The family of this 108-nucleotide RNA sequence from Pedobacter sp. BMA is "Bacteroidales small SRP". Rfam links the family to the GO terms signal recognition particle, plasma membrane targeting and SRP-dependent cotranslational protein targeting to membrane, signal sequence recognition. Pairs were carried over by alignment from the consensus structure, which is taken from published work. Its Rfam clan is "SRP clan". Rfam classes the family as a non-coding RNA gene.

RNA sequence: UUGUGCCGGGCAAGUCUUUUACGACCAGCUCCCUUUGAACUCCCCCAGGAUGGGAACAUAGCAAGGGUAGAAGGUUGUAGCGGUGCGAUAGAAGGUGCUUGCCCUUUU
Dot-bracket structure: .......((((((((.(((((((((.........................................................)).)).)))))...))))))))....